[Rfam]
RNA sequence: GUAGGUUAUGGUGAUAUAUAUCCCAAAACACUUUUGGGAAAAAUAGUUGGUGGACUUUGUUGUAUUGCAGGGGUGCUAGUGAUAGCCUUGCCUAUUCCAAUUAUUGUAAACAAU
Number, nucleotide and partner (000 for none) at each position: 001g114002u113003a000004g111005g000006u000007u108008a107009u106010g105011g104012u000013g102014a101015u100016a000017u000018a000019u000020a095021u094022c000023c000024c000025a000026a000027a000028a000029c000030a000031c000032u000033u000034u000035u000036g000037g077038g076039a000040a074041a000042a000043a000044u000045a000046g000047u000048u000049g063050g000051u000052g000053g000054a000055c000056u000057u000058u000059g000060u000061u000062g000063u049064a000065u000066u000067g000068c000069a000070g000071g000072g000073g000074u040075g000076c038077u037078a000079g000080u000081g000082a000083u000084a000085g000086c000087c000088u000089u000090g000091c000092c000093u000094a021095u020096u000097c000098c000099a000100a015101u014102u013103a000104u011105u010106g009107u008108a007109a000110a000111c004112a000113a002114u001
RNA: Potassium channel RNA editing signal